[Rfam]
RNA sequence: ACAAUGAUACUUCCGUCCAGUCCCAGUCACAAGCAAGGAGGGCGGCCGACAGAGAUCCUGCCGGGGGUGAAAUUCCCAUGA
Numbered sequence: 001a002c003a004a005u006g007a008u009a010c011u012u013c014c015g016u017c018c019a020g021u022c023c024c025a026g027u028c029a030c031a032a033g034c035a036a037g038g039a040g041g042g043c044g045g046c047c048g049a050c051a052g053a054g055a056u057c058c059u060g061c062c063g064g065g066g067g068u069g070a071a072a073u074u075c076c077c078a079u080g081a
Stems, first nucleotide, its partner, number of pairs: 012078001013045006046064003050060003065077003
RNA: pemK RNA